[Rfam]
RNA sequence: AUACUUACCUGACGCGAGAGGCACCUUGAUCAACUAGGAGGUCCUCUCAGGAUGAGGCCCUUUCAUUGCACUUCGACUGGGUUGACUCCUGCGAUUACCCCUAAUGUGGGUAACUCAAGCGUAUAAUUUCUGGUAGUGGGGACCUGCGUUCGCGCUCGUCCCCU
Numbered sequence: 001a002u003a004c005u006u007a008c009c010u011g012a013c014g015c016g017a018g019a020g021g022c023a024c025c026u027u028g029a030u031c032a033a034c035u036a037g038g039a040g041g042u043c044c045u046c047u048c049a050g051g052a053u054g055a056g057g058c059c060c061u062u063u064c065a066u067u068g069c070a071c072u073u074c075g076a077c078u079g080g081g082u083u084g085a086c087u088c089c090u091g092c093g094a095u096u097a098c099c100c101c102u103a104a105u106g107u108g109g110g111u112a113a114c115u116c117a118a119g120c121g122u123a124u125a126a127u128u129u130c131u132g133g134u135a136g137u138g139g140g141g142a143c144c145u146g147c148g149u150u151c152g153c154g155c156u157c158g159u160c161c162c163c164u
Base pairs, nucleotide, nucleotide: 012122013121014120015119016048017047018046019045020044021043023042024041025040026039027038049090050089051088052087054086056083057082058081060079063076064075093116094115095113096112097111099109100108138163139162140161141160142159143158146155147154148153
RNA: U1 spliceosomal RNA